Description:
Shown here is a 109-nucleotide sequence from Shimia litoralis, a member of the family "TPP riboswitch aptamer (THI element)". Taxonomically the source falls in Shimia (Bacteria, Pseudomonadati, Rhodobacterales, Roseobacteraceae). The family's consensus secondary structure is taken from published work. Gene Ontology term of the family: thiamine pyrophosphate binding.

Nucleotides: 109
Stems, first nucleotide, its partner, number of pairs: 007096004011059004016053001017037004046052002065090003071084004
Number, partner (000 for none) and nucleotide at each position: 001000g002000c003000g004000g005000c006000c007096a008095c009094c010093u011059c012058g013057g014056g015000g016053u017037g018036c019035c020034c021000a022000a023000a024000c025000a026000c027000g028000a029000u030000g031000u032000g033000c034020g035019g036018g037017c038000u039000g040000a041000g042000a043000u044000g045000c046052g047051c048000g049000a050000u051047g052046c053016g054000a055000a056014c057013c058012c059011g060000u061000u062000g063000a064000a065090c066089c067088u068000g069000a070000a071084c072083c073082g074081g075000u076000u077000a078000a079000g080000a081074c082073c083072g084071g085000c086000g087000g088067a089066g090065g091000g092000a093010a094009g095008g096007u097000c098000c099000g100000u101000g102000g103000a104000u105000a106000u107000g108000a109000u